[Rfam]
RNA: Plastid-rps18 3UTR RNA
Organism: Nicotiana sylvestris
RNA sequence: UGGAAGUAUUUUACGGUUAAGAAGCAAUUGUCUCUUGUACAGAUCGUGCAUUAAUAU
Numbered sequence: 001u002g003g004a005a006g007u008a009u010u011u012u013a014c015g016g017u018u019a020a021g022a023a024g025c026a027a028u029u030g031u032c033u034c035u036u037g038u039a040c041a042g043a044u045c046g047u048g049c050a051u052u053a054a055u056a057u
Base pairs, nucleotide, nucleotide: 018037019036020035021034022033024031025030